[Rfam]
RNA sequence: CAAUAAAGGAAGCAUGGUAAUGUGCACAUAAAUUGAAUUGGGUCUCUAGGCCUGCCUUCUCUGAUGUCAUUUGGCUUUGAUUUGGGAGCAUGGUUCUGUAGCAAAAUA
Number, nucleotide and partner (000 for none) at each position: 001c000002a000003a000004u000005a000006a000007a000008g000009g000010a000011a000012g025013c024014a023015u022016g000017g000018u000019a000020a000021u000022g015023u014024g013025c012026a000027c000028a000029u000030a000031a000032a000033u000034u000035g000036a000037a000038u000039u000040g091041g000042g089043u088044c000045u000046c000047u000048a000049g000050g081051c000052c079053u000054g075055c074056c073057u000058u000059c000060u000061c000062u000063g000064a000065u000066g000067u000068c000069a000070u000071u000072u000073g056074g055075c054076u000077u000078u000079g052080a000081u050082u000083u000084g000085g000086g000087a000088g043089c042090a000091u040092g000093g000094u000095u000096c000097u000098g000099u000100a000101g000102c000103a000104a000105a000106a000107u000108a000
Notes:
Small nucleolar RNA snoR100: a 108-nucleotide RNA sequence from Rhododendron simsii. The family's RNA type in Rfam is H/ACA-box small nucleolar RNA. The family has 9 seed sequences and 1,851 matches in Rfam 15.1. The source organism's lineage runs through Eukaryota, Embryophyta, Ericaceae, Rhodoreae and Rhododendron. A search with the family's covariance model found it, with a score of 91 bits. The literature on the family includes a 2002 paper in Curr Biol by Marker et al., "Experimental RNomics: identification of 140 candidates for small non-messenger RNAs in the plant Arabidopsis thaliana". Gene Ontology terms of the family: RNA processing and nucleolus.